[Rfam]
RNA sequence: ACAUAUGGAUACGGGAGCUUGGAUGAAGCCAGGCUGAGAGGGUGGAGAACUCUGCUACCGACCGUGAAACCUGAUCUGGAUAAUGCCAGCGUAGGAAACGAUCCCAUACGAAUGACU
Numbered sequence: 001a002c003a004u005a006u007g008g009a010u011a012c013g014g015g016a017g018c019u020u021g022g023a024u025g026a027a028g029c030c031a032g033g034c035u036g037a038g039a040g041g042g043u044g045g046a047g048a049a050c051u052c053u054g055c056u057a058c059c060g061a062c063c064g065u066g067a068a069a070c071c072u073g074a075u076c077u078g079g080a081u082a083a084u085g086c087c088a089g090c091g092u093a094g095g096a097a098a099c100g101a102u103c104c105c106a107u108a109c110g111a112a113u114g115a116c117u
Stems, first nucleotide, its partner, number of pairs: 007104004011065004017034005041059005070095004076089004

TPP riboswitch aptamer (THI element): a 117-nucleotide sequence from Brevibacillus laterosporus.
The source organism's lineage runs through Bacteria, Bacillota, Bacilli, Brevibacillus and Brevibacillus laterosporus.
It scores 59 bits against the family's covariance model.
Vitamin B(1) in its active form thiamin pyrophosphate (TPP) is an essential coenzyme that is synthesised by coupling of pyrimidine and thiazole moieties in bacteria.